[Rfam]
RNA: TPP riboswitch aptamer (THI element)
RNA sequence: AAGUAACACUAGGGGCGCUUAAAUAAGCUGAGAGAGGCAUUGGCCUUAACCCUUGAACCUGCACUAGGUAAUGCUAGCGAAGGAAAGUGUACAUUAUUAUAA
Numbered sequence: 001a002a003g004u005a006a007c008a009c010u011a012g013g014g015g016c017g018c019u020u021a022a023a024u025a026a027g028c029u030g031a032g033a034g035a036g037g038c039a040u041u042g043g044c045c046u047u048a049a050c051c052c053u054u055g056a057a058c059c060u061g062c063a064c065u066a067g068g069u070a071a072u073g074c075u076a077g078c079g080a081a082g083g084a085a086a087g088u089g090u091a092c093a094u095u096a097u098u099a100u101a102a
Base pairs, nucleotide, nucleotide: 006090007089008088009087010086011053012052013051014050017028018027019026020025035046036045037044038043058083059082060081064077065076066075067074